Annotation: The family of this 135-nucleotide RNA sequence from Desulfotomaculum copahuensis is "Glycine riboswitch aptamer". About the family: This family represents the bacterial glycine riboswitch. Glycine riboswitches usually consist of two metabolite-binding aptamers domains with similar structures in tandem. The aptamers cooperatively bind glycine to regulate the expression of downstream genes. In Bacillus subtilis, this riboswitch is found upstream of the gcvT operon which controls glycine degradation. Its Rfam clan is "Glycine riboswitch clan". Taxonomically the source falls in Desulfotomaculum (Bacteria, Bacillota, Eubacteriales, Desulfotomaculaceae).
[Rfam]
RNA sequence: GGACGGACCUCUGGAGAGAGCCCGGCUACGGACAUGAUCCGGACCGGGACACCGACGGGGCAAGUUUUGACGGGCGGCUGUUUAAAUGCUGCCGCCGGAAACGAAACUCUCAGGUAACAGGACAGAGGAGAUGUU
Numbered sequence: 001g002g003a004c005g006g007a008c009c010u011c012u013g014g015a016g017a018g019a020g021c022c023c024g025g026c027u028a029c030g031g032a033c034a035u036g037a038u039c040c041g042g043a044c045c046g047g048g049a050c051a052c053c054g055a056c057g058g059g060g061c062a063a064g065u066u067u068u069g070a071c072g073g074g075c076g077g078c079u080g081u082u083u084a085a086a087u088g089c090u091g092c093c094g095c096c097g098g099a100a101a102c103g104a105a106a107c108u109c110u111c112a113g114g115u116a117a118c119a120g121g122a123c124a125g126a127g128g129a130g131a132u133g134u135u
Stems, first nucleotide, its partner, number of pairs: 008128006021048005051115003054111002058109003064102005